[Rfam]
RNA sequence: GAAAGAUCGGAUUAAAUACUGUCCGAUUGGGCGUAAUGGUUGCCCCAAUCAAA
Number, nucleotide and partner (000 for none) at each position: 001g000002a000003a000004a000005g028006a027007u026008c025009g024010g023011a022012u021013u000014a000015a000016a000017u000018a000019c000020u000021g012022u011023c010024c009025g008026a007027u006028u005029g045030g044031g043032c042033g041034u000035a000036a000037u000038g000039g000040u000041u033042g032043c031044c030045c029046c000047a000048a000049u000050c000051a000052a000053a000